[Rfam]
RNA sequence: UGCUGGGGAAGGUCCUGGGAGCAGGUUCCCUGGCCUCUGCUCAGCUAGGGCUGGGCCCAGAGGCAUGUGGUCCCCGAUCCUGGCUCCCAGCC
Numbered sequence: 001u002g003c004u005g006g007g008g009a010a011g012g013u014c015c016u017g018g019g020a021g022c023a024g025g026u027u028c029c030c031u032g033g034c035c036u037c038u039g040c041u042c043a044g045c046u047a048g049g050g051c052u053g054g055g056c057c058c059a060g061a062g063g064c065a066u067g068u069g070g071u072c073c074c075c076g077a078u079c080c081u082g083g084c085u086c087c088c089a090g091c092c
Stems, first nucleotide, its partner, number of pairs: 004089001006087001008086002011084001018081002021078001028070002030067001033064007
The record is a 92-nucleotide sequence from Gopherus evgoodei, which matches "NoRC associated RNA, pRNA" in Rfam. On this family, see Mayer et al., EMBO Rep 2008: "The structure of NoRC-associated RNA is crucial for targeting the chromatin remodelling complex NoRC to the nucleolus". A search with the family's covariance model found it, with a score of 36 bits. Rfam classes the family as a non-coding RNA gene.